The family of this 59-nucleotide RNA from Lactiplantibacillus mudanjiangensis is "Ribosomal protein L13 leader". Rfam links the family to the GO term regulation of gene expression. The literature on the family includes a 1994 paper in Prog Nucleic Acid Res Mol Biol by Zengel and Lindahl, "Diverse mechanisms for regulating ribosomal protein synthesis in Escherichia coli".
[Rfam]
RNA sequence: GGUAUUGUUUGCCCCACGAUAAGCCCCGGAAUCUUAUUGAGUGUCAAGCAAAACAGAAA
Numbered sequence: 001g002g003u004a005u006u007g008u009u010u011g012c013c014c015c016a017c018g019a020u021a022a023g024c025c026c027c028g029g030a031a032u033c034u035u036a037u038u039g040a041g042u043g044u045c046a047a048g049c050a051a052a053a054c055a056g057a058a059a
Stems, first nucleotide, its partner, number of pairs: 006055003009051004017039007